[Rfam]
RNA sequence: UCCCUCGGCUCUGAUGACUAUAUACUUUUUUCCCCAGCAGAUCGACUCUGUUGACUGUACAAAAUUUAAGCCAAACCGUCUGAGCUGCGGCA
Numbered sequence: 001u002c003c004c005u006c007g008g009c010u011c012u013g014a015u016g017a018c019u020a021u022a023u024a025c026u027u028u029u030u031u032c033c034c035c036a037g038c039a040g041a042u043c044g045a046c047u048c049u050g051u052u053g054a055c056u057g058u059a060c061a062a063a064a065u066u067u068a069a070g071c072c073a074a075a076c077c078g079u080c081u082g083a084g085c086u087g088c089g090g091c092a
Stems, first nucleotide, its partner, number of pairs: 001092001003090002006087004
This 92-nucleotide RNA sequence from Electrophorus electricus belongs to the Rfam family "Small nucleolar SNORD12/SNORD106".
The base pairs follow the family's consensus structure, which was predicted with RNAalifold.
The family's RNA type in Rfam is C/D-box small nucleolar RNA.
Gene Ontology terms of the family: RNA processing and nucleolus.